[Rfam]
RNA: Small nucleolar RNA Z103
Organism: Dioscorea zingiberensis
RNA sequence: UUGGAUCUGAUGAGCCUUUCCCCACAUGAUCGACUAUGAUUAUAAUGUGCGCUUACUUAGUUUUCUCCUUUUCGGAGGAGAAAUCAAGCCAGAUGUUCUGAUCCAU
Dot-bracket structure: .((((((............................................................................................)))))).